RNA sequence: CCUGACUUUAAGUCUCUUUUCAGGGUGCCACAGGCAAAGCUGGGGACCCAGGGAGAGACGUAAGUAAGG
Numbered sequence: 001c002c003u004g005a006c007u008u009u010a011a012g013u014c015u016c017u018u019u020u021c022a023g024g025g026u027g028c029c030a031c032a033g034g035c036a037a038a039g040c041u042g043g044g045g046a047c048c049c050a051g052g053g054a055g056a057g058a059c060g061u062a063a064g065u066a067a068g069g
Stems, first nucleotide, its partner, number of pairs: 002068002005065004012059009023049004028044002031042003
Dot-bracket structure: .((.((((...(((((((((..((((.((.(((......))))).)))).)))))))))..)))).)).

The record is a 69-nucleotide RNA from Equus caballus, which matches "mir-711 microRNA precursor family" in Rfam.
Taxonomically the source falls in Equus (Eukaryota, Gnathostomata, Euteleostomi, Amniota).
Rfam 15.1 lists 118 matches to the family in 116 species.
The match comes from Rfam's covariance-model search (94 bits).
The literature on the family includes a 2006 paper in Nucleic Acids Res by Mineno et al., "The expression profile of microRNAs in mouse embryos".
The base pairs follow the family's consensus structure, which was predicted with RNAalifold.